[Rfam]
Rfam assigns this 123-nucleotide sequence from Haemaphysalis longicornis to the family "U5 spliceosomal RNA".
About the family: U5 RNA is a component of both types of known spliceosome. The precise function of this molecule is unknown, though it is known that the 5' loop is required for splice site selection and p220 binding, and that both the 3' stem-loop and the Sm site are important for Sm protein binding and cap methylation.
It scores 86 bits against the family's covariance model.
Pairs were carried over by alignment from the consensus structure, which is taken from published work.
Rfam 15.1 lists 28,527 matches to the family in 2,489 species.
Its family is annotated with spliceosomal tri-snRNP complex assembly and U5 snRNP in the Gene Ontology.
RNA sequence: AGGCUCAGGUCUCUCCUCACAUCCACGCAUUAAUCUUUCGCCUUUUACUAAAGAUUACCGUGGGGAGGGACAUUCCAAUGAGCCUAUAGGCCAAUUUUUGGGAGGCCUUGCCCGUUUGGGCUA
Numbered sequence: 001a002g003g004c005u006c007a008g009g010u011c012u013c014u015c016c017u018c019a020c021a022u023c024c025a026c027g028c029a030u031u032a033a034u035c036u037u038u039c040g041c042c043u044u045u046u047a048c049u050a051a052a053g054a055u056u057a058c059c060g061u062g063g064g065g066a067g068g069g070a071c072a073u074u075c076c077a078a079u080g081a082g083c084c085u086a087u088a089g090g091c092c093a094a095u096u097u098u099u100g101g102g103a104g105g106c107c108u109u110g111c112c113c114g115u116u117u118g119g120g121c122u123a
Stems, first nucleotide, its partner, number of pairs: 003083004009071011031057008104122005